Record summary:
The record is a 77-nucleotide RNA sequence from Alligator sinensis, which matches "Mammalian CPEB3 ribozyme" in Rfam. Pairs were carried over by alignment from the consensus structure, which is taken from published work.
RNA sequence: AGUUGCAAGUUUGAGGACAUAGCAGAAGCACUCACAGCACAACCCUAUCAGAUUCCAAUUAAUCUGUGAAUUCUGCU
Numbered sequence: 001a002g003u004u005g006c007a008a009g010u011u012u013g014a015g016g017a018c019a020u021a022g023c024a025g026a027a028g029c030a031c032u033c034a035c036a037g038c039a040c041a042a043c044c045c046u047a048u049c050a051g052a053u054u055c056c057a058a059u060u061a062a063u064c065u066g067u068g069a070a071u072u073c074u075g076c077u
Stems, first nucleotide, its partner, number of pairs: 013045001015044002021077007028040001049066006
NCBI's taxonomy places the organism under Eukaryota, Gnathostomata, Dipnotetrapodomorpha, Amniota, Alligator.